[Rfam]
RNA sequence: UAUUUAUACCGAUGAGGUGAGAGACAAGGCUCUGUGACCCUCAGGCAACCUACGAAAGCAAGGUGCCAAUUCCUUCCCGAUAUUGGGACAUAUAAAUA
Numbered sequence: 001u002a003u004u005u006a007u008a009c010c011g012a013u014g015a016g017g018u019g020a021g022a023g024a025c026a027a028g029g030c031u032c033u034g035u036g037a038c039c040c041u042c043a044g045g046c047a048a049c050c051u052a053c054g055a056a057a058g059c060a061a062g063g064u065g066c067c068a069a070u071u072c073c074u075u076c077c078c079g080a081u082a083u084u085g086g087g088a089c090a091u092a093u094a095a096a097u098a
Stems, first nucleotide, its partner, number of pairs: 001098008013043005021032003026075004044067004049063002051060001053058001071090001076087004
Overview:
Shown here is a 98-nucleotide RNA sequence from a Saprospiraceae bacterium, a member of the family "SAM riboswitch aptamer (S box leader)". The family's consensus secondary structure is taken from published work. It scores 71 bits against the family's covariance model.